[Rfam]
RNA sequence: CAAUAUAGCCUUGAAAAACACACACGCACCGGCACAUGGUCCCGGGUGCUGCCGCGGCGCCGCCUCGGUAGUCGGAUCCAUGGGGUGCGUGGAGGCCUAAC
Numbered sequence: 001c002a003a004u005a006u007a008g009c010c011u012u013g014a015a016a017a018a019c020a021c022a023c024a025c026g027c028a029c030c031g032g033c034a035c036a037u038g039g040u041c042c043c044g045g046g047u048g049c050u051g052c053c054g055c056g057g058c059g060c061c062g063c064c065u066c067g068g069u070a071g072u073c074g075g076a077u078c079c080a081u082g083g084g085g086u087g088c089g090u091g092g093a094g095g096c097c098u099a100a101c
Base pairs, nucleotide, nucleotide: 023091024090025089026088027087028086029085030084035082036081037080038079039078040076041075042074048072049071050070051069052068053067054066
t44 RNA: a 101-nucleotide RNA from Halomonas chromatireducens. The literature on the family includes a 2002 paper in Nucleic Acids Res by Tjaden et al., "Transcriptome analysis of Escherichia coli using high-density oligonucleotide probe arrays". A search with the family's covariance model found it, with a score of 74 bits. Rfam describes the family as follows. This family consists of a number of bacterial RNA genes of between 135 and 170 bases in length. The t44 gene has been identified in several species of enteric bacteria but homologs have also been identified in Pseudomonas and Coxiella species. The t44 gene is found between the map and rpsB genes in all species in the full alignment apart from Shigella flexneri. The function of this RNA is unknown.